[Rfam]
RNA sequence: GCUGUACAUGAUGAAAACAGUCUCCCUCUUCUGAACCUCGCUGAGGAGACUGCACGUCACCCUCCUGAAACAGC
Dot-bracket structure: (((((................................................................)))))
Numbered sequence: 001g002c003u004g005u006a007c008a009u010g011a012u013g014a015a016a017a018c019a020g021u022c023u024c025c026c027u028c029u030u031c032u033g034a035a036c037c038u039c040g041c042u043g044a045g046g047a048g049a050c051u052g053c054a055c056g057u058c059a060c061c062c063u064c065c066u067g068a069a070a071c072a073g074c
Stems, first nucleotide, its partner, number of pairs: 001074005
A member of the RNA family "Small nucleolar RNA SNORD100" from Mus spicilegus, 74 nucleotides long. By type it is a C/D-box small nucleolar RNA. For this family Rfam cites "RNomics: an experimental approach that identifies 201 candidates for novel, small, non-messenger RNAs in mouse" (Huttenhofer et al., EMBO J, 2001).